Small nucleolar RNA Z43: a 95-nucleotide RNA sequence from Lathyrus oleraceus. The match comes from Rfam's covariance-model search (84 bits). The literature on the family includes a 2003 paper in Nucleic Acids Res by Chen et al., "The high diversity of snoRNAs in plants: identification and comparative study of 120 snoRNA genes from Oryza sativa". It is annotated as a C/D-box small nucleolar RNA. Taxonomically the source falls in Lathyrus (Eukaryota, rosids, Fabales, Fabaceae). Pairs were carried over by alignment from the consensus structure, which was predicted with PFOLD. Rfam links the family to the GO terms RNA processing and nucleolus.

RNA sequence: UGACGAUGGUGAUUUGUGAUUAGGUCUCGUUCGUCGUAACGGCCGAUUCGGCCUUGCCGACCAUCCUGUUAUAUCACCACCCAUAUUCCGAGUCU
Numbered sequence: 001u002g003a004c005g006a007u008g009g010u011g012a013u014u015u016g017u018g019a020u021u022a023g024g025u026c027u028c029g030u031u032c033g034u035c036g037u038a039a040c041g042g043c044c045g046a047u048u049c050g051g052c053c054u055u056g057c058c059g060a061c062c063a064u065c066c067u068g069u070u071a072u073a074u075c076a077c078c079a080c081c082c083a084u085a086u087u088c089c090g091a092g093u094c095u
Base pairs, nucleotide, nucleotide: 002094003093004092045055046054